[Rfam]
RNA sequence: GCCAGAAUGUCAGCGACUAAGGUCGUUGACAGCGUGCAUUAGUAAAUCCAGUAACCCACCAGUACAUGUAAAAGGUACGCAAACGCCCCGUGGCAAUGCGUCUUGGCUGGUUAUGUUAUCCCAAUCUGUUGGAUGGUCACAUGCCCUUAUUUCGUUUCUUUUUCAUAGGAUUACGAAUGGUGGUGGUCCCCAUGCUUCAUUUAAUGAGUGGUUACUAUUUUU
Numbered sequence: 001g002c003c004a005g006a007a008u009g010u011c012a013g014c015g016a017c018u019a020a021g022g023u024c025g026u027u028g029a030c031a032g033c034g035u036g037c038a039u040u041a042g043u044a045a046a047u048c049c050a051g052u053a054a055c056c057c058a059c060c061a062g063u064a065c066a067u068g069u070a071a072a073a074g075g076u077a078c079g080c081a082a083a084c085g086c087c088c089c090g091u092g093g094c095a096a097u098g099c100g101u102c103u104u105g106g107c108u109g110g111u112u113a114u115g116u117u118a119u120c121c122c123a124a125u126c127u128g129u130u131g132g133a134u135g136g137u138c139a140c141a142u143g144c145c146c147u148u149a150u151u152u153c154g155u156u157u158c159u160u161u162u163u164c165a166u167a168g169g170a171u172u173a174c175g176a177a178u179g180g181u182g183g184u185g186g187u188c189c190c191c192a193u194g195c196u197u198c199a200u201u202u203a204a205u206g207a208g209u210g211g212u213u214a215c216u217a218u219u220u221u222u
Base pairs, nucleotide, nucleotide: 001037002036008031009030010029011028012027013026014025015024016023050216051215052214053213054212055211056210058111059110060109061108062107063106065105066104078100079099080098081097085094086093087092127199128198131195133193134192135191136190142185143184144183
Background
The record is a 222-nucleotide sequence, which matches "RT-7 RNA" in Rfam. It is one of the family's seed sequences. It is annotated as a small RNA.